Rfam assigns this 150-nucleotide RNA from Carlito syrichta to the family "U12 minor spliceosomal RNA". Pairs were carried over by alignment from the consensus structure. Lineage of the source: Eukaryota > Metazoa > Mammalia > Tarsiiformes > Carlito.
[Rfam]
RNA sequence: AUGGCUUAGACUUAUGAGUAACGAAAAUAACACUUCUGGGUGAUGCCUGAAUCCUCACCGCUAAGGUGAGAUAAAUUUUUGAGUGGGUAAAGGUUGCCCCUAAGGUGACCCGACUACUUUGCGGGAUGCCUGGGAGUCGCCAUCUGCCCG
Numbered sequence: 001a002u003g004g005c006u007u008a009g010a011c012u013u014a015u016g017a018g019u020a021a022c023g024a025a026a027a028u029a030a031c032a033c034u035u036c037u038g039g040g041u042g043a044u045g046c047c048u049g050a051a052u053c054c055u056c057a058c059c060g061c062u063a064a065g066g067u068g069a070g071a072u073a074a075a076u077u078u079u080u081g082a083g084u085g086g087g088u089a090a091a092g093g094u095u096g097c098c099c100c101u102a103a104g105g106u107g108a109c110c111c112g113a114c115u116a117c118u119u120u121g122c123g124g125g126a127u128g129c130c131u132g133g134g135a136g137u138c139g140c141c142a143u144c145u146g147c148c149c150g
Stems, first nucleotide, its partner, number of pairs: 006021003034051003038047002054070005084150005091145004096140002100134002103131005109125004
Dot-bracket structure: .....(((..........)))............(((.((......)).)))..(((((.......))))).............(((((..((((.((..((.(((((.((((.........)))).))))).))....)).)))))))))